TPP riboswitch aptamer (THI element): a 107-nucleotide RNA from Novosphingobium kunmingense. Lineage of the source: Bacteria > Pseudomonadota > Alphaproteobacteria > Sphingomonadales > Novosphingobium. Vitamin B(1) in its active form thiamin pyrophosphate (TPP) is an essential coenzyme that is synthesised by coupling of pyrimidine and thiazole moieties in bacteria. Rfam links the family to the GO term thiamine pyrophosphate binding.
RNA sequence: GGCCCAUCCCCGGGGAGCCGCGUUGGCUGAGAGGGAGGGCUCGCAUCCUCCGACCCGUCGAACCUGAACCCGUUAGCACGGGCGGAGGGAGGGCAGACCGCUCAGCC
Numbered sequence: 001g002g003c004c005c006a007u008c009c010c011c012g013g014g015g016a017g018c019c020g021c022g023u024u025g026g027c028u029g030a031g032a033g034g035g036a037g038g039g040c041u042c043g044c045a046u047c048c049u050c051c052g053a054c055c056c057g058u059c060g061a062a063c064c065u066g067a068a069c070c071c072g073u074u075a076g077c078a079c080g081g082g083c084g085g086a087g088g089g090a091g092g093g094c095a096g097a098c099c100g101c102u103c104a105g106c107c
Base pairs, nucleotide, nucleotide: 008093009092010091011057012056013055014054017027018026019025020024034051035050036049037048038047063088064087065086069082070081071080072079